Background
Shown here is a 125-nucleotide sequence from Bacillus sp. FJAT-49736, a member of the family "PyrR binding site".
RNA sequence: CUCACCUUUUAACAUAAGUCCAGAGAGGCUUAUAAGGGUGUUUUAAUGUGAUGGAUUAAGUUCCUCUUAAUCUAUCACAUUAGGAUCUAUUACACCCUGAAUUUUUUAUUCAGGGUGUUUUUUAU
Numbered sequence: 001c002u003c004a005c006c007u008u009u010u011a012a013c014a015u016a017a018g019u020c021c022a023g024a025g026a027g028g029c030u031u032a033u034a035a036g037g038g039u040g041u042u043u044u045a046a047u048g049u050g051a052u053g054g055a056u057u058a059a060g061u062u063c064c065u066c067u068u069a070a071u072c073u074a075u076c077a078c079a080u081u082a083g084g085a086u087c088u089a090u091u092a093c094a095c096c097c098u099g100a101a102u103u104u105u106u107u108a109u110u111c112a113g114g115g116u117g118u119u120u121u122u123u124a125u
Stems, first nucleotide, its partner, number of pairs: 003040007015032006047079014092118011
Background:
Taxonomically the source falls in Bacillus (Bacteria, Bacilli, Caryophanales, Bacillaceae). The base pairs follow the family's consensus structure, which is taken from published work. This family represents the PyrR binding site and terminator structure. The match comes from Rfam's covariance-model search (71 bits). Rfam classes the family as a cis-regulatory element.